The family of this 226-nucleotide RNA from Phytophthora ramorum is "Small nucleolar RNA U3".
The source organism's lineage runs through Eukaryota, Oomycota, Peronosporales, Peronosporaceae and Phytophthora.

RNA sequence: AAGACCGUACUUUUACAGGAUCAUUUCUAUAGUACUCUCUAUUCUACUUUCUUUCCAAAAGUAGACAAUUUCAAUAACUUUGAUGAUCGUAUUCGACUUCAUUCAUUGACUCGGGAUGUCGGUGGUUGCAGCGCUGGGUUCUCUUUUGGACUCGGCCCACCCCAUUGAUGAACGUCCGCUGUCGCUAUUCCAAGGCAGCGUGAGUGAGUGGAGUGAUAUGAGAAGU
Numbered sequence: 001a002a003g004a005c006c007g008u009a010c011u012u013u014u015a016c017a018g019g020a021u022c023a024u025u026u027c028u029a030u031a032g033u034a035c036u037c038u039c040u041a042u043u044c045u046a047c048u049u050u051c052u053u054u055c056c057a058a059a060a061g062u063a064g065a066c067a068a069u070u071u072c073a074a075u076a077a078c079u080u081u082g083a084u085g086a087u088c089g090u091a092u093u094c095g096a097c098u099u100c101a102u103u104c105a106u107u108g109a110c111u112c113g114g115g116a117u118g119u120c121g122g123u124g125g126u127u128g129c130a131g132c133g134c135u136g137g138g139u140u141c142u143c144u145u146u147u148g149g150a151c152u153c154g155g156c157c158c159a160c161c162c163c164a165u166u167g168a169u170g171a172a173c174g175u176c177c178g179c180u181g182u183c184g185c186u187a188u189u190c191c192a193a194g195g196c197a198g199c200g201u202g203a204g205u206g207a208g209u210g211g212a213g214u215g216a217u218a219u220g221a222g223a224a225g226u
Base pairs, nucleotide, nucleotide: 002040003039004038007035008034009033010032011031017028018027019026020025049065050064054061077226078225079224080223081222096214097213098212099211100210101209102208103207104206105205106204107203112174113173121163122162124160128156129155137152138151139150140149141148176202177200178199179198180197181196182195183194
By type it is a C/D-box small nucleolar RNA. Rfam describes the family as follows. Small nucleolar RNAs (snoRNAs) are involved in the processing and modification of rRNA in the nucleolus. There are two main classes of snoRNAs: the box C/D class, and the box H/ACA class. Rfam links the family to the GO terms nucleolus and RNA processing. Pairs were carried over by alignment from the consensus structure, which is taken from published work. The sequence is in the family's curated seed alignment.